A member of the RNA family "Ribosomal protein L13 leader" from Lentibacillus populi, 64 nucleotides long. Pairs were carried over by alignment from the consensus structure, which was predicted with CMfinder. On this family, see Zengel and Lindahl, Prog Nucleic Acid Res Mol Biol 1994: "Diverse mechanisms for regulating ribosomal protein synthesis in Escherichia coli".
RNA sequence: GGCAUUUUAUUUCUAAACCAUGAUUAGCCCCGGAAACUAAUUAUGUUAAAUAUAGGAAUAACAA
Numbered sequence: 001g002g003c004a005u006u007u008u009a010u011u012u013c014u015a016a017a018c019c020a021u022g023a024u025u026a027g028c029c030c031c032g033g034a035a036a037c038u039a040a041u042u043a044u045g046u047u048a049a050a051u052a053u054a055g056g057a058a059u060a061a062c063a064a
Stems, first nucleotide, its partner, number of pairs: 008060007019045009
Rfam classes the family as a cis-regulatory leader. It scores 48 bits against the family's covariance model. Rfam describes the family as follows. This family is a putative r-protein leader autoregulatory structure found in B. subtilis and other low-GC Gram-positive bacteria. It is located in the 5' untranslated regions of mRNAs encoding the L13-S9 (rplM-rpsI) ribosomal protein operon.